[Rfam]
c-di-GMP-I riboswitch aptamer: an 83-nucleotide sequence from Peribacillus loiseleuriae. Rfam links the family to the GO term cyclic-di-GMP binding. Taxonomically the source falls in Peribacillus (Bacteria, Bacillati, Bacillota, Bacillaceae). The match comes from Rfam's covariance-model search (80 bits).
RNA sequence: AUACCCAUUAGGCAAAUUUUACGAAAGUAAAAGACGCAAAGCCACGGACCUAAGGUUUUUACUAUGGUAGCCGGGUUACCAAG
Numbered sequence: 001a002u003a004c005c006c007a008u009u010a011g012g013c014a015a016a017u018u019u020u021a022c023g024a025a026a027g028u029a030a031a032a033g034a035c036g037c038a039a040a041g042c043c044a045c046g047g048a049c050c051u052a053a054g055g056u057u058u059u060u061a062c063u064a065u066g067g068u069a070g071c072c073g074g075g076u077u078a079c080c081a082a083g
Base pairs, nucleotide, nucleotide: 012037013036017032018031019030020029021028022027040077041076042075043074045073046072047071048068049067050066055062056061